[Rfam]
RNA: mir-221 microRNA precursor family
Organism: Monodelphis domestica
RNA sequence: GCAUGAACCUGGCAUACAAUGUAGAAUUCUGUGUUUAUUAAGUAACAGCUACAUUGUCUGCUGGGUUUCAGGCU
Numbered sequence: 001g002c003a004u005g006a007a008c009c010u011g012g013c014a015u016a017c018a019a020u021g022u023a024g025a026a027u028u029c030u031g032u033g034u035u036u037a038u039u040a041a042g043u044a045a046c047a048g049c050u051a052c053a054u055u056g057u058c059u060g061c062u063g064g065g066u067u068u069c070a071g072g073c074u
Stems, first nucleotide, its partner, number of pairs: 009064006016057009029048004